[Rfam]
RNA: Small nucleolar RNA SNORA58
Organism: Castor canadensis
RNA sequence: AGGCAUAUCCGUAGACCUUGCCUGACUCUGCUCAUGACCAGGUAGGGGGGACAGUGUAUGCAAGAGUAAUUGGAGUCCAUGCUAGCUCUAACCAGCUAAUCACUGGCUGGAUAAAUUGCAGUACUCCAACAUUA
Numbered sequence: 001a002g003g004c005a006u007a008u009c010c011g012u013a014g015a016c017c018u019u020g021c022c023u024g025a026c027u028c029u030g031c032u033c034a035u036g037a038c039c040a041g042g043u044a045g046g047g048g049g050g051a052c053a054g055u056g057u058a059u060g061c062a063a064g065a066g067u068a069a070u071u072g073g074a075g076u077c078c079a080u081g082c083u084a085g086c087u088c089u090a091a092c093c094a095g096c097u098a099a100u101c102a103c104u105g106g107c108u109g110g111a112u113a114a115a116u117u118g119c120a121g122u123a124c125u126c127c128a129a130c131a132u133u134a
Base pairs, nucleotide, nucleotide: 003061004060005059006058007057008056016047017046018045019044020043021042022041023040024039072127073126074125075124080120081119082118092110093109094108095107096106